The family of this 84-nucleotide RNA sequence from Chloracidobacterium thermophilum is "tRNA". The match comes from Rfam's covariance-model search (55 bits). Transfer RNA (tRNA) molecules are approximately 80 nucleotides in length. Rfam links the family to the GO term triplet codon-amino acid adaptor activity. It is annotated as a transfer RNA.
RNA sequence: GCGGAUGUGGCGGAAUUGGCAGACGCGCAUGGCUCAGGACCAUGUGGGCUUCGGCCCUUGAAGGUUCAAGUCCUUUCAUCCGCA
Number, nucleotide and partner (000 for none) at each position: 001g083002c082003g081004g080005a079006u078007g077008u000009g000010g026011c025012g024013g000014a000015a000016u000017u000018g000019g000020c000021a000022g000023a000024c012025g011026c010027g000028c044029a043030u042031g041032g040033c000034u000035c000036a000037g000038g000039a000040c032041c031042a030043u029044g028045u000046g000047g000048g000049c000050u000051u000052c000053g000054g000055c000056c000057c000058u000059u000060g076061a075062a074063g073064g072065u000066u000067c000068a000069a000070g000071u000072c064073c063074u062075u061076u060077c007078a006079u005080c004081c003082g002083c001084a000